[Rfam]
RNA: c-di-GMP-I riboswitch aptamer
Organism: Methylocaldum marinum
RNA sequence: AUCUGAUAAAGGCAAAACCAUUGAAAGAUGGUGGCGCAAAGUUACCGGUCUACGGGAGAUAGUCUCCUAUGACAGCGGGAUUGCCAGC
Numbered sequence: 001a002u003c004u005g006a007u008a009a010a011g012g013c014a015a016a017a018c019c020a021u022u023g024a025a026a027g028a029u030g031g032u033g034g035c036g037c038a039a040a041g042u043u044a045c046c047g048g049u050c051u052a053c054g055g056g057a058g059a060u061a062g063u064c065u066c067c068u069a070u071g072a073c074a075g076c077g078g079g080a081u082u083g084c085c086a087g088c
Base pairs, nucleotide, nucleotide: 012037013036017032018031019030020029021028022027040082041081042080043079045078046077047076048073049072050071055067056066057065058064
Dot-bracket structure: ...........((...((((((....))))))...))..((((.((((((....((((.....))))...)))..)))))))......